The family of this 69-nucleotide RNA sequence from Pseudomonas syringae group genomosp. 3 is "sucC RNA". Rfam classes the family as a cis-regulatory element. NCBI's taxonomy places the organism under Bacteria, Pseudomonadati, Pseudomonadaceae, Pseudomonas, Pseudomonas syringae pv. tomato.

[Rfam]
RNA sequence: GUCACAGGUGGUGCGGCACGCUGACGUGCAGCACCGAAUGCGCAGUACCUAAACGAAGACGGUAAUAAG
Number, nucleotide and partner (000 for none) at each position: 001g000002u000003c000004a000005c000006a000007g000008g000009u036010g035011g034012u033013g032014c031015g000016g029017c028018a027019c026020g025021c000022u000023g000024a000025c020026g019027u018028g017029c016030a000031g014032c013033a012034c011035c010036g009037a000038a000039u000040g000041c000042g000043c000044a000045g000046u000047a000048c000049c000050u000051a000052a000053a000054c000055g000056a000057a000058g000059a000060c000061g000062g000063u000064a000065a000066u000067a000068a000069g000